[Rfam]
The record is a 260-nucleotide RNA from Catagonus wagneri, which matches "RNase MRP" in Rfam. By type it is a ribozyme. The match comes from Rfam's covariance-model search (220 bits). Rfam's curators write: RNase MRP is an enzymatically active ribonucleoprotein with two distinct roles in eukaryotes. In mitochondria it plays a direct role in the initiation of mitochondrial DNA replication. In the nucleus it is involved in precursor rRNA processing, where it cleaves the internal transcribed spacer 1 between 18S and 5.8S rRNAs.
RNA sequence: GCUCGUGCUGAAGGCCUGUUUCCUAGGCUACAAACGGGGGAUUUAGUUCCUCAUUUAUGCCUAGGGGAAAGUCCCCGGACCUCAGGCAGAAAGUGCCGCGUGCACCUGCACGUAGAUAGGCCCUGCACCUCACGGUUUAACCCGCUAAGAAGCGAUCCCGCCGAGCGGCGUGCUGCAGGGGUGUUAUCCGUCAAAUGAAAUAGUUACGCAGGCAGUGCACUUCUGUGCACCAACCACACGGGGCUCAUUCUCAGCACGGC
Numbered sequence: 001g002c003u004c005g006u007g008c009u010g011a012a013g014g015c016c017u018g019u020u021u022c023c024u025a026g027g028c029u030a031c032a033a034a035c036g037g038g039g040g041a042u043u044u045a046g047u048u049c050c051u052c053a054u055u056u057a058u059g060c061c062u063a064g065g066g067g068a069a070a071g072u073c074c075c076c077g078g079a080c081c082u083c084a085g086g087c088a089g090a091a092a093g094u095g096c097c098g099c100g101u102g103c104a105c106c107u108g109c110a111c112g113u114a115g116a117u118a119g120g121c122c123c124u125g126c127a128c129c130u131c132a133c134g135g136u137u138u139a140a141c142c143c144g145c146u147a148a149g150a151a152g153c154g155a156u157c158c159c160g161c162c163g164a165g166c167g168g169c170g171u172g173c174u175g176c177a178g179g180g181g182u183g184u185u186a187u188c189c190g191u192c193a194a195a196u197g198a199a200a201u202a203g204u205u206a207c208g209c210a211g212g213c214a215g216u217g218c219a220c221u222u223c224u225g226u227g228c229a230c231c232a233a234c235c236a237c238a239c240g241g242g243g244c245u246c247a248u249u250c251u252c253a254g255c256a257c258g259g260c
Base pairs, nucleotide, nucleotide: 003259004258005257006256007255008254009253010252011251014213015212016211017210018209019208022065023064024063025062026061027060028059037052038051039050040049041048070245071244073243074242075241076240085097086096087095088094098113099112100111101110102109103108115185116184117183121180122179123178124177125176126175131172132171133170142168143167144166145165152161153160154159215230216229217228218227219226220225